[Rfam]
RNA: Group II catalytic intron D1-D4-3
RNA sequence: GUCGUCGUGAGGCGGGGUCUGGAGGAAGCCCGAGGCGAAACCCUGCACCGAGGGACACGAACCGCGUAUGAGGCUGGGCGUUCUGGGUGAGCCUGCAAGGAAAGGUGGAGCCCGUCAUCACCGACAGGGGCGUCAGGUAUACGCGGCGGGCGUAGGGGGAAAGUGGUCGUU
Numbered sequence: 001g002u003c004g005u006c007g008u009g010a011g012g013c014g015g016g017g018u019c020u021g022g023a024g025g026a027a028g029c030c031c032g033a034g035g036c037g038a039a040a041c042c043c044u045g046c047a048c049c050g051a052g053g054g055a056c057a058c059g060a061a062c063c064g065c066g067u068a069u070g071a072g073g074c075u076g077g078g079c080g081u082u083c084u085g086g087g088u089g090a091g092c093c094u095g096c097a098a099g100g101a102a103a104g105g106u107g108g109a110g111c112c113c114g115u116c117a118u119c120a121c122c123g124a125c126a127g128g129g130g131c132g133u134c135a136g137g138u139a140u141a142c143g144c145g146g147c148g149g150g151c152g153u154a155g156g157g158g159g160a161a162a163g164u165g166g167u168c169g170u171u
Stems, first nucleotide, its partner, number of pairs: 002015005028171001030169001032167001035164002041157005048149003062146006073138003077134007085113004091106004